[Rfam]
Rfam assigns this 144-nucleotide sequence from Coleofasciculus sp. LEGE 07092 to the family "Guanidine-I riboswitch aptamer".

RNA sequence: AUUAAUGGCUUCUAGGGUUCCGGUUUAAGAACUAAACACUUAAGCGGCUGGUCCGAGAGAAGCAAGCCACCUUGUCACGAGUUUUUUGGUGAAUCCCAGAAACUAUAUGAAGGGGCGACACGGCGGGAAAAAAGCCCGGGAGAA
Numbered sequence: 001a002u003u004a005a006u007g008g009c010u011u012c013u014a015g016g017g018u019u020c021c022g023g024u025u026u027a028a029g030a031a032c033u034a035a036a037c038a039c040u041u042a043a044g045c046g047g048c049u050g051g052u053c054c055g056a057g058a059g060a061a062g063c064a065a066g067c068c069a070c071c072u073u074g075u076c077a078c079g080a081g082u083u084u085u086u087u088g089g090u091g092a093a094u095c096c097c098a099g100a101a102a103c104u105a106u107a108u109g110a111a112g113g114g115g116c117g118a119c120a121c122g123g124c125g126g127g128a129a130a131a132a133a134g135c136c137c138g139g140g141a142g143a144a
Stems, first nucleotide, its partner, number of pairs: 008063005015054002020051002022048001023045006066116003070112001072110004119139001121142001125137003